The family of this 86-nucleotide RNA from Paspalum vaginatum is "MIR2275 microRNA precursor family".
Gene Ontology terms of the family: miRNA-mediated post-transcriptional gene silencing and RISC complex.
Pairs were carried over by alignment from the consensus structure, which was predicted with RNAalifold.
Taxonomically the source falls in Paspalum (Eukaryota, Streptophytina, Poaceae, Paspalinae).
RNA sequence: CAGUUGAGUUUCAGAAUUGGAUGGAACCAAAUCUUAUUGCGAAAUCAGGGCAAGACUUGGUUUCCUCCAAUACUGAUGUUCAAUUG
Numbered sequence: 001c002a003g004u005u006g007a008g009u010u011u012c013a014g015a016a017u018u019g020g021a022u023g024g025a026a027c028c029a030a031a032u033c034u035u036a037u038u039g040c041g042a043a044a045u046c047a048g049g050g051c052a053a054g055a056c057u058u059g060g061u062u063u064c065c066u067c068c069a070a071u072a073c074u075g076a077u078g079u080u081c082a083a084u085u086g
Stems, first nucleotide, its partner, number of pairs: 004083005011076004016071006023064008032055002